[Rfam]
RNA sequence: GUUCACGAGCGCGGCCUCACGGGCCUGGCCGGCCGCGCAGCAACCCGAACUCGAUUCCCGGGUGCUUCCAGAGCAGAACGGGCCUCAGCGCACUCGCUGAGGCAAGACUCGACC
Numbered sequence: 001g002u003u004c005a006c007g008a009g010c011g012c013g014g015c016c017u018c019a020c021g022g023g024c025c026u027g028g029c030c031g032g033c034c035g036c037g038c039a040g041c042a043a044c045c046c047g048a049a050c051u052c053g054a055u056u057c058c059c060g061g062g063u064g065c066u067u068c069c070a071g072a073g074c075a076g077a078a079c080g081g082g083c084c085u086c087a088g089c090g091c092a093c094u095c096g097c098u099g100a101g102g103c104a105a106g107a108c109u110c111g112a113c114c
Base pairs, nucleotide, nucleotide: 001079002078003077004076009038010037011036012035013034014033015032021030022029039066040065041064044062045061046060049056082103083102084101085100086099087098088097089096090095
Shown here is a 114-nucleotide sequence from Kocuria palustris, a member of the family "SAM (S-adenosyl methionine) riboswitch aptamer". For this family Rfam cites "The aptamer core of SAM-IV riboswitches mimics the ligand-binding site of SAM-I riboswitches" (Weinberg et al., RNA, 2008). The organism belongs to Kocuria palustris, within Bacteria.